Rfam assigns this 85-nucleotide RNA sequence from Musa balbisiana to the family "Plastid-rpl20 3UTR RNA".
Rfam describes the family as follows. Plastid rpl20 is a non-coding RNA (ncRNA) recognised in plastids.
The literature on the family includes a 2023 paper in Plant Commun by Richter et al., "Retrograde signaling in plants: A critical review focusing on the GUN pathway and beyond".
The source organism's lineage runs through Eukaryota, Embryophyta, Liliopsida, Musaceae and Musa.
It is annotated as a cis-regulatory element.
[Rfam]
Nucleotides: 085
Stems, first nucleotide, its partner, number of pairs: 007033002010029006068081004
Number, partner (000 for none) and nucleotide at each position: 001000a002000c003000a004000g005000a006000a007033u008032u009000c010029c011028c012027c013026g014025g015024a016000a017000a018000g019000g020000g021000a022000a023000c024015u025014c026013c027012g028011g029010g030000c031000a032008a033007a034000a035000a036000u037000a038000u039000a040000a041000u042000a043000c044000a045000a046000a047000a048000a049000u050000u051000a052000a053000g054000a055000u056000a057000g058000u059000a060000a061000u062000a063000g064000g065000a066000a067000u068081g069080a070079a071078c072000g073000a074000a075000u076000a077000u078071g079070u080069u081068c082000a083000u084000a085000a